[Rfam]
RNA sequence: GAAGGCUGGCGAUGGACGAGCUCCUCGCCAAUCGGGUCAGGUCCGGAAGGAAGCAGCCCUAACGAGUUCAGGCUCGGGUCAUUGUCCAGUCUUCCAC
Numbered sequence: 001g002a003a004g005g006c007u008g009g010c011g012a013u014g015g016a017c018g019a020g021c022u023c024c025u026c027g028c029c030a031a032u033c034g035g036g037u038c039a040g041g042u043c044c045g046g047a048a049g050g051a052a053g054c055a056g057c058c059c060u061a062a063c064g065a066g067u068u069c070a071g072g073c074u075c076g077g078g079u080c081a082u083u084g085u086c087c088a089g090u091c092u093u094c095c096a097c
Stems, first nucleotide, its partner, number of pairs: 003092005009085006017076006024066004034059004042051003